The record is a 148-nucleotide RNA from Microvirga vignae, which matches "Alphaproteobacterial sRNA BjrC1505" in Rfam. A search with the family's covariance model found it, with a score of 55 bits. NCBI's taxonomy places the organism under Bacteria, Pseudomonadati, Alphaproteobacteria, Hyphomicrobiales, Microvirga.
RNA sequence: GACAGGGUUAACGCGGUUUUAAUGAUUUCGGUGUCUCAUGAGGACGUCCAGUUCUCUCCCGCUGGACGUUCCGAGUGGUUCUUCCUCCCACUCUGUUUGACGCCUCCCUGUUGAACUUCCCAAGAGCCGCUUCAGCGGCUCGAUUUUU
Dot-bracket structure: ..(((........)((...((.((....)).))))...)).....(((((((........))))))).....((((((.........)))))).....((((......))))...........(((((((....))))))).......
Numbered sequence: 001g002a003c004a005g006g007g008u009u010a011a012c013g014c015g016g017u018u019u020u021a022a023u024g025a026u027u028u029c030g031g032u033g034u035c036u037c038a039u040g041a042g043g044a045c046g047u048c049c050a051g052u053u054c055u056c057u058c059c060c061g062c063u064g065g066a067c068g069u070u071c072c073g074a075g076u077g078g079u080u081c082u083u084c085c086u087c088c089c090a091c092u093c094u095g096u097u098u099g100a101c102g103c104c105u106c107c108c109u110g111u112u113g114a115a116c117u118u119c120c121c122a123a124g125a126g127c128c129g130c131u132u133c134a135g136c137g138g139c140u141c142g143a144u145u146u147u148u
Stems, first nucleotide, its partner, number of pairs: 003040002005014001015035002020033002023030002046067007073093006099112004124141007